[Rfam]
Nucleotides: 090
Base pairs, nucleotide, nucleotide: 001090002089003088004087049057050056051055
Number, partner (000 for none) and nucleotide at each position: 001090g002089g003088g004087c005000c006000a007000u008000g009000u010000g011000a012000u013000g014000a015000g016000a017000a018000a019000c020000c021000u022000u023000a024000a025000g026000c027000a028000a029000c030000u031000c032000a033000c034000g035000a036000c037000g038000g039000u040000c041000g042000u043000c044000u045000g046000a047000g048000a049057c050056a051055c052000u053000u054000u055051g056050u057049g058000u059000g060000u061000a062000a063000u064000g065000u066000u067000g068000c069000a070000g071000u072000c073000a074000u075000a076000u077000u078000u079000u080000c081000u082000c083000u084000g085000a086000u087004g088003u089002c090001c

The family of this 90-nucleotide RNA sequence from Panicum hallii is "Small nucleolar RNA Z161/Z228". It is annotated as a C/D-box small nucleolar RNA. Rfam links the family to the GO terms nucleolus and RNA processing. The family's consensus secondary structure was predicted with PFOLD. Clan: SNORD35 clan. A reference for the family is Chen et al. (2003), "The high diversity of snoRNAs in plants: identification and comparative study of 120 snoRNA genes from Oryza sativa", Nucleic Acids Res.